[Rfam]
RNA sequence: UCAGCUCUCUUUGCCUUUGGCUUAGAUCAAGUGUAGUAUCUGUUCUUUACAGUCUAAUCGCUGUAACGUCCCUACGGGGGCUUCUUGAUUAGCACUUUUUGGAGCCCGAGGGGUGGCCGCUGCGCUUGCGCAUGUCGCUCCUCACUGUGUCGCCCGUAUUUGCACUGUCUCGGGCUGACGCGAACAUUC
Numbered sequence: 001u002c003a004g005c006u007c008u009c010u011u012u013g014c015c016u017u018u019g020g021c022u023u024a025g026a027u028c029a030a031g032u033g034u035a036g037u038a039u040c041u042g043u044u045c046u047u048u049a050c051a052g053u054c055u056a057a058u059c060g061c062u063g064u065a066a067c068g069u070c071c072c073u074a075c076g077g078g079g080g081c082u083u084c085u086u087g088a089u090u091a092g093c094a095c096u097u098u099u100u101g102g103a104g105c106c107c108g109a110g111g112g113g114u115g116g117c118c119g120c121u122g123c124g125c126u127u128g129c130g131c132a133u134g135u136c137g138c139u140c141c142u143c144a145c146u147g148u149g150u151c152g153c154c155c156g157u158a159u160u161u162g163c164a165c166u167g168u169c170u171c172g173g174g175c176u177g178a179c180g181c182g183a184a185c186a187u188u189c
Base pairs, nucleotide, nucleotide: 008026009025010024013021014020015019047066048065049064050063051062052061068081069080070079071078072077108143109142110141111140112139113138114137115136121132122131123130124129146182147181148180149179150178151177153174154173155172156171

Source information
The family of this 189-nucleotide sequence from Aplosporella prunicola is "U2 spliceosomal RNA". The match comes from Rfam's covariance-model search (128 bits).